[Rfam]
RNA sequence: GAAAAAUUUCGCAAACCUUAUCGUAGUGGGACGGCGCAUGGGCAGGAUGGUGUAACCAUCCGGCGGUAGCCACCCAUGCGCUAAACGAGGCUCCUCCAGGGGGCCUUUUUUUAUGCCCGCAA
Numbered sequence: 001g002a003a004a005a006a007u008u009u010c011g012c013a014a015a016c017c018u019u020a021u022c023g024u025a026g027u028g029g030g031a032c033g034g035c036g037c038a039u040g041g042g043c044a045g046g047a048u049g050g051u052g053u054a055a056c057c058a059u060c061c062g063g064c065g066g067u068a069g070c071c072a073c074c075c076a077u078g079c080g081c082u083a084a085a086c087g088a089g090g091c092u093c094c095u096c097c098a099g100g101g102g103g104c105c106u107u108u109u110u111u112u113a114u115g116c117c118c119g120c121a122a
Base pairs, nucleotide, nucleotide: 007028009026029118030117032115033082034081035080036079037078038077039076040075041074042073045061046060047059048058049057050056063070064069087107088106089105090104091103092102093101094100
Rhizobiales sRNA Atu_C8: a 122-nucleotide RNA sequence from Allorhizobium borbori.
On this family, see Wilms et al., RNA Biol 2012: "Deep sequencing uncovers numerous small RNAs on all four replicons of the plant pathogen Agrobacterium tumefaciens".